[Rfam]
RNA: Small nucleolar RNA SNORA63
Organism: Nannospalax galili
RNA sequence: AAGCAGGAUUAACUAUAGUACAGCUGUUAAGGGCUAUGUUGUCAUUCCCCCUGCUCAGAACAAUGCUGUUUCUUUACUAUAUCUGUCUGCUAGACACCUGUAGCAUCCAGGGAUGCUUGAUCUCAUACAU
Numbered sequence: 001a002a003g004c005a006g007g008a009u010u011a012a013c014u015a016u017a018g019u020a021c022a023g024c025u026g027u028u029a030a031g032g033g034c035u036a037u038g039u040u041g042u043c044a045u046u047c048c049c050c051c052u053g054c055u056c057a058g059a060a061c062a063a064u065g066c067u068g069u070u071u072c073u074u075u076a077c078u079a080u081a082u083c084u085g086u087c088u089g090c091u092a093g094a095c096a097c098c099u100g101u102a103g104c105a106u107c108c109a110g111g112g113a114u115g116c117u118u119g120a121u122c123u124c125a126u127a128c129a130u
Base pairs, nucleotide, nucleotide: 003054004053005052006051007050015042016041017040018039019038020037022035023034024033082111083110084109085108088105089104090103